The family of this 266-nucleotide RNA from Ureibacillus manganicus is "Bacterial large signal recognition particle RNA".
The match comes from Rfam's covariance-model search (196 bits).
From the family's description: The signal recognition particle (SRP) is a universally conserved ribonucleoprotein involved in the co-translational targeting of proteins to membranes.
[Rfam]
RNA sequence: CCGGGCUAGUUGGGGAGGUAGCGGUGCCCUGUAACUUGCAAUCCGCUCUAGCGAGAAUGAAGUCCUUUCCUAGGCUGUCCGUAUUGUAGGGUUUGCCUUUUGCACGUAGCGUUGACGGCUGGGUCCCGCGCAAUGAGUACCCAUGAACCAUGUCAGAUCCGGAAGGAAGCAGCAUUAAGUGGGUUCACUCAUGUGCCGUGGGGUAGCCUCGCUUGAGUUGGCGACAAAAGUAACGCCUAUGUGCUGCUGCCAAAGAAGGUGCUCGG
Numbered sequence: 001c002c003g004g005g006c007u008a009g010u011u012g013g014g015g016a017g018g019u020a021g022c023g024g025u026g027c028c029c030u031g032u033a034a035c036u037u038g039c040a041a042u043c044c045g046c047u048c049u050a051g052c053g054a055g056a057a058u059g060a061a062g063u064c065c066u067u068u069c070c071u072a073g074g075c076u077g078u079c080c081g082u083a084u085u086g087u088a089g090g091g092u093u094u095g096c097c098u099u100u101u102g103c104a105c106g107u108a109g110c111g112u113u114g115a116c117g118g119c120u121g122g123g124u125c126c127c128g129c130g131c132a133a134u135g136a137g138u139a140c141c142c143a144u145g146a147a148c149c150a151u152g153u154c155a156g157a158u159c160c161g162g163a164a165g166g167a168a169g170c171a172g173c174a175u176u177a178a179g180u181g182g183g184u185u186c187a188c189u190c191a192u193g194u195g196c197c198g199u200g201g202g203g204u205a206g207c208c209u210c211g212c213u214u215g216a217g218u219u220g221g222c223g224a225c226a227a228a229a230g231u232a233a234c235g236c237c238u239a240u241g242u243g244c245u246g247c248u249g250c251c252a253a254a255g256a257a258g259g260u261g262c263u264c265g266g
Stems, first nucleotide, its partner, number of pairs: 001266006009058003012030004017025001019023001035055005064259005073250001081244004086240005094232002098229005106222002108219003117213003121209004125202006131193002134191005139184006150175004158167003
Notes
The family's RNA type in Rfam is non-coding RNA gene. A reference for the family is Rosenblad et al. (2003), "SRPDB: Signal Recognition Particle Database", Nucleic Acids Res.